[Rfam]
RNA sequence: AGCACCUAAAAGCGUUUUCUUGCACGCCAAUUAAAUGCGCUUGAAAAUCGUACAUGUGUGCUAGAUCAAAGCUAAGUUGCAAGUGACUCUUUGAAGUAUUUAGAAGAGUCCAUAACGCUGAGUACAUUU
Numbered sequence: 001a002g003c004a005c006c007u008a009a010a011a012g013c014g015u016u017u018u019c020u021u022g023c024a025c026g027c028c029a030a031u032u033a034a035a036u037g038c039g040c041u042u043g044a045a046a047a048u049c050g051u052a053c054a055u056g057u058g059u060g061c062u063a064g065a066u067c068a069a070a071g072c073u074a075a076g077u078u079g080c081a082a083g084u085g086a087c088u089c090u091u092u093g094a095a096g097u098a099u100u101u102a103g104a105a106g107a108g109u110c111c112a113u114a115a116c117g118c119u120g121a122g123u124a125c126a127u128u129u
Base pairs, nucleotide, nucleotide: 001062002061003060004059005058006056012051013050014049015047016046017045018044019043022038023037073121075119076118077117083113084112085111086109087108088107089106090104091103092102093101